Streptomyces RNA 3920: a 126-nucleotide RNA sequence from Streptomyces sp. sk2.1. The organism belongs to Streptomyces, within Bacteria.
RNA sequence: GAUAGGUCGCUGUCGCCACGGUGAUUGGACACUGACGGAGAGUCAACUAGCCUGGCUUGGGCGGUUCUUCGCAGGAAGAACCGGAGGCGGUCCGAGCCACGAGGGGGGAGGCUCGGGCCGCCGUAC
Numbered sequence: 001g002a003u004a005g006g007u008c009g010c011u012g013u014c015g016c017c018a019c020g021g022u023g024a025u026u027g028g029a030c031a032c033u034g035a036c037g038g039a040g041a042g043u044c045a046a047c048u049a050g051c052c053u054g055g056c057u058u059g060g061g062c063g064g065u066u067c068u069u070c071g072c073a074g075g076a077a078g079a080a081c082c083g084g085a086g087g088c089g090g091u092c093c094g095a096g097c098c099a100c101g102a103g104g105g106g107g108g109a110g111g112c113u114c115g116g117g118c119c120g121c122c123g124u125a126c
Stems, first nucleotide, its partner, number of pairs: 001014005015051002018048001021032003033045004058075001061072004086122013100107001
Dot-bracket structure: (((((....)))))((.(..(((......)))((((.....))))..).))......(..((((....))))..)..........(((((((((((((.(......)..)))))))))))))....